[Rfam]
RNA: drz-agam-2-2 ribozyme
Nucleotides: 187
Base pairs, nucleotide, nucleotide: 011099013097020067021066022065023064024063025062026061027060029056030055071187072186073185074184076183077182079181083095084094085093088103108172109171110170111169112168113167114166115165116161118159119158124146126144127143128142148156149155
Number, partner (000 for none) and nucleotide at each position: 001000a002000c003000u004000a005000a006000c007000a008000u009000g010000c011099u012000c013097u014000g015000c016000a017000a018000a019000g020067g021066g022065a023064u024063g025062g026061g027060a028000u029056c030055c031000g032000a033000a034000g035000c036000c037000c038000c039000u040000u041000u042000g043000a044000g045000g046000g047000a048000u049000a050000a051000u052000a053000g054000a055030g056029g057000c058000u059000c060027u061026c062025c063024c064023a065022u066021u067020c068000a069000a070000c071187u072186c073185c074184u075000a076183u077182u078000c079181c080000g081000a082000c083095a084094c085093g086000u087000c088103c089000u090000u091000g092000u093085c094084g095083u096000g097013a098000a099011g100000a101000g102000u103088g104000u105000u106000a107000a108172c109171a110170u111169g112168u113167g114166c115165c116161a117000g118159c119158c120000a121000a122000g123000c124146u125000a126144c127143g128142a129000u130000a131000c132000a133000c134000g135000g136000a137000c138000u139000a140000g141000u142128u143127u144126g145000c146124a147000a148156c149155u150000a151000c152000u153000c154000g155149g156148g157000c158119g159118g160000a161116u162000g163000g164000u165115g166114g167113c168112g169111c170110a171109u172108g173000g174000c175000a176000a177000a178000u179000c180000g181079g182077a183076a184074a185073g186072g187071g